[Rfam]
RNA sequence: CCUUCGAUGAUGAUCCACUCUUCCCUUGACUUUCGUUCUCCUGAGCUUGCUGAAGCAAAGCUUGUUUGACCUGAGGAGG
Numbered sequence: 001c002c003u004u005c006g007a008u009g010a011u012g013a014u015c016c017a018c019u020c021u022u023c024c025c026u027u028g029a030c031u032u033u034c035g036u037u038c039u040c041c042u043g044a045g046c047u048u049g050c051u052g053a054a055g056c057a058a059a060g061c062u063u064g065u066u067u068g069a070c071c072u073g074a075g076g077a078g079g
Base pairs, nucleotide, nucleotide: 001079002078003077005075
Dot-bracket structure: (((.(.....................................................................).)))
Description:
Rfam assigns this 79-nucleotide RNA from Acanthisitta chloris to the family "Small nucleolar RNA SNORD59". A search with the family's covariance model found it, with a score of 62 bits. By type it is a C/D-box small nucleolar RNA. Its Rfam clan is "SNORD59 clan". The organism belongs to Acanthisitta, within Eukaryota. The family's consensus secondary structure was predicted with ILM.